[Rfam]
RNA sequence: GGCGUAAAGGGCUCGUAGGCGGUUUGUCGCGUCGGGAGUGAAAACCAGGUGCUCAACACCUGGCCUGCUUCCGAUACGGGCAGACUAGAGGUAUGCAGGGGAGAACGGAAUUCCUGGUGUAGCGGUGAAAUGCGCAGAUAUCAGGAGGAACACCGGUGGCGAAGGCGGUUCUCUGGGCAUGACCUGACGCUGAGGAGCGAAAGUGUGGGGAGCGAACAGGAUUAGAUACCCUGGUAGUCCACACCGUAAACGUUGGGCGCUAGGUGUGGGAUCCAUUCCACGGGUUCCGUGCCGCAGCUAACGCAUUAAGCGCCCCGCCUGGGGAGUACGGCCGCAAGGCUAAAACUCAAAGGAAU
Numbered sequence: 001g002g003c004g005u006a007a008a009g010g011g012c013u014c015g016u017a018g019g020c021g022g023u024u025u026g027u028c029g030c031g032u033c034g035g036g037a038g039u040g041a042a043a044a045c046c047a048g049g050u051g052c053u054c055a056a057c058a059c060c061u062g063g064c065c066u067g068c069u070u071c072c073g074a075u076a077c078g079g080g081c082a083g084a085c086u087a088g089a090g091g092u093a094u095g096c097a098g099g100g101g102a103g104a105a106c107g108g109a110a111u112u113c114c115u116g117g118u119g120u121a122g123c124g125g126u127g128a129a130a131u132g133c134g135c136a137g138a139u140a141u142c143a144g145g146a147g148g149a150a151c152a153c154c155g156g157u158g159g160c161g162a163a164g165g166c167g168g169u170u171c172u173c174u175g176g177g178c179a180u181g182a183c184c185u186g187a188c189g190c191u192g193a194g195g196a197g198c199g200a201a202a203g204u205g206u207g208g209g210g211a212g213c214g215a216a217c218a219g220g221a222u223u224a225g226a227u228a229c230c231c232u233g234g235u236a237g238u239c240c241a242c243a244c245c246g247u248a249a250a251c252g253u254u255g256g257g258c259g260c261u262a263g264g265u266g267u268g269g270g271a272u273c274c275a276u277u278c279c280a281c282g283g284g285u286u287c288c289g290u291g292c293c294g295c296a297g298c299u300a301a302c303g304c305a306u307u308a309a310g311c312g313c314c315c316c317g318c319c320u321g322g323g324g325a326g327u328a329c330g331g332c333c334g335c336a337a338g339g340c341u342a343a344a345a346c347u348c349a350a351a352g353g354a355a356u
Stems, first nucleotide, its partner, number of pairs: 001319003009316001011198004016192001018191003022085007030078002032074009045063007089185003092181005100174007107151001111147008122133003159166002203244006212238002217233004255315006263293012297304002321348003330341004
RNA: Bacterial small subunit ribosomal RNA, nucleotides 541 to 896
Organism: Nocardioides perillae